[Rfam]
RNA sequence: AGCUGCUGAUGAUUUUUCUUCUGACACCUCGUAUGAACUGCUCUGCAGUUUGUGAUUUUUGCUUUUCCAACCUGAGGCUC
Numbered sequence: 001a002g003c004u005g006c007u008g009a010u011g012a013u014u015u016u017u018c019u020u021c022u023g024a025c026a027c028c029u030c031g032u033a034u035g036a037a038c039u040g041c042u043c044u045g046c047a048g049u050u051u052g053u054g055a056u057u058u059u060u061g062c063u064u065u066u067c068c069a070a071c072c073u074g075a076g077g078c079u080c
Stems, first nucleotide, its partner, number of pairs: 001079004037049005